About this RNA
A member of the RNA family "c-di-GMP-I riboswitch aptamer" from Cloacibacillus porcorum, 82 nucleotides long. The family's consensus secondary structure is taken from published work.

RNA sequence: UUAUAAAAAAGCCACAGCUGUCGAAAGACAGCGCCGGAAAGCUAAGGGUCUAAGACGAAAGUUAUGACAGCCGGUCGCCGAU
Numbered sequence: 001u002u003a004u005a006a007a008a009a010a011g012c013c014a015c016a017g018c019u020g021u022c023g024a025a026a027g028a029c030a031g032c033g034c035c036g037g038a039a040a041g042c043u044a045a046g047g048g049u050c051u052a053a054g055a056c057g058a059a060a061g062u063u064a065u066g067a068c069a070g071c072c073g074g075u076c077g078c079c080g081a082u
Base pairs, nucleotide, nucleotide: 012037013036017032018031019030020029021028022027041075042074043073046072047071048068049067050066055062056061